[Rfam]
The family of this 128-nucleotide RNA sequence from Carassius auratus is "Small nucleolar RNA SNORA65". The family is grouped with related families in Rfam's "SNORA65 clan". U65 belongs to the H/ACA class of snoRNAs which are thought to guide the sites of modification of uridines to pseudouridines. Its family is annotated with RNA processing and nucleolus in the Gene Ontology. The organism belongs to Carassius, within Eukaryota. A reference for the family is Huttenhofer et al. (2001), "RNomics: an experimental approach that identifies 201 candidates for novel, small, non-messenger RNAs in mouse", EMBO J. It is annotated as an H/ACA-box small nucleolar RNA. It scores 77 bits against the family's covariance model.
RNA sequence: CCCGCCACUGUGCUAGUCUGUAAAAGGGACUGUGUACUGUCCAGAGGAGGCUAAAAAUAACCCAGUUCUAGGAAGCAGGAAUACUCAAACUCAGUGGUUAAACCUGUGCCAAAAAGCCUGGAACAUGU
Numbered sequence: 001c002c003c004g005c006c007a008c009u010g011u012g013c014u015a016g017u018c019u020g021u022a023a024a025a026g027g028g029a030c031u032g033u034g035u036a037c038u039g040u041c042c043a044g045a046g047g048a049g050g051c052u053a054a055a056a057a058u059a060a061c062c063c064a065g066u067u068c069u070a071g072g073a074a075g076c077a078g079g080a081a082u083a084c085u086c087a088a089a090c091u092c093a094g095u096g097g098u099u100a101a102a103c104c105u106g107u108g109c110c111a112a113a114a115a116g117c118c119u120g121g122a123a124c125a126u127g128u
Base pairs, nucleotide, nucleotide: 005047006046008044009043010042018034020030021028062121063120064119065118066116067115069113071110072109076106077105078104079103085097086096